The record is a 172-nucleotide RNA from Marinobacterium nitratireducens, which matches "Group II catalytic intron D1-D4-3" in Rfam. A search with the family's covariance model found it, with a score of 97 bits. NCBI's taxonomy places the organism under Bacteria, Pseudomonadota, Gammaproteobacteria, Oceanospirillaceae, Marinobacterium. Pairs were carried over by alignment from the consensus structure.

RNA sequence: GGAAGGGUGAUCGACCGUGGGGAAGAAGCGUGGAGCGUAAACCGUGAGCCGAUGAACAAGAAUCGGAUAUGAGGCGCCGCCGAGCAGGGCGAGCGGGCGUAAAGCCGCGAAGCUCUCGUGGCCAAGGCGAAGUGGCGUAUAUCCGGCGGUUGUGCGGUGAAGGAGUGUGUUC
Numbered sequence: 001g002g003a004a005g006g007g008u009g010a011u012c013g014a015c016c017g018u019g020g021g022g023a024a025g026a027a028g029c030g031u032g033g034a035g036c037g038u039a040a041a042c043c044g045u046g047a048g049c050c051g052a053u054g055a056a057c058a059a060g061a062a063u064c065g066g067a068u069a070u071g072a073g074g075c076g077c078c079g080c081c082g083a084g085c086a087g088g089g090c091g092a093g094c095g096g097g098c099g100u101a102a103a104g105c106c107g108c109g110a111a112g113c114u115c116u117c118g119u120g121g122c123c124a125a126g127g128c129g130a131a132g133u134g135g136c137g138u139a140u141a142u143c144c145g146g147c148g149g150u151u152g153u154g155c156g157g158u159g160a161a162g163g164a165g166u167g168u169g170u171u172c
Base pairs, nucleotide, nucleotide: 001016002015005012006011028172030170031169032168036163041158042157043156044155045154046153047151048150049149050148051147063146064145065144066143067142068141074138075137076136078134079133080132087115088114089113090112093108094107095106096105